[Rfam]
RNA sequence: AUUGCCCCUAGAGGCGUUACAAAUUUGGCUGCUGUGCCUCAUUUGUGUCAGUAGGUGGCAAAGAGAAAGAGACUAUGUCUACGCUCAGUGCUCUGACCCAGUGAGCACUCAGAAUGAUUAAUAGCCUGACACU
Numbered sequence: 001a002u003u004g005c006c007c008c009u010a011g012a013g014g015c016g017u018u019a020c021a022a023a024u025u026u027g028g029c030u031g032c033u034g035u036g037c038c039u040c041a042u043u044u045g046u047g048u049c050a051g052u053a054g055g056u057g058g059c060a061a062a063g064a065g066a067a068a069g070a071g072a073c074u075a076u077g078u079c080u081a082c083g084c085u086c087a088g089u090g091c092u093c094u095g096a097c098c099c100a101g102u103g104a105g106c107a108c109u110c111a112g113a114a115u116g117a118u119u120a121a122u123a124g125c126c127u128g129a130c131a132c133u
Stems, first nucleotide, its partner, number of pairs: 002061005007055004013049003019046004024041001027038003070127002073124004082116002085113002088110001089107005
Record summary:
A member of the RNA family "Small nucleolar RNA SNORA17" from Monodelphis domestica, 133 nucleotides long. The source organism's lineage runs through Eukaryota, Deuterostomia, Euteleostomi, Dipnotetrapodomorpha and Monodelphis. About the family: snoRNA ACA 17 belongs to the H/ACA family of snoRNAs and is predicted to guide pseudouridylation of the 28S rRNA at positions U4659 and U4598. The family has 53 seed sequences and 5,784 matches in Rfam 15.1. By type it is an H/ACA-box small nucleolar RNA. On this family, see Ofengand and Bakin, J Mol Biol 1997: "Mapping to nucleotide resolution of pseudouridine residues in large subunit ribosomal RNAs from representative eukaryotes, prokaryotes, archaebacteria, mitochondria and chloroplasts".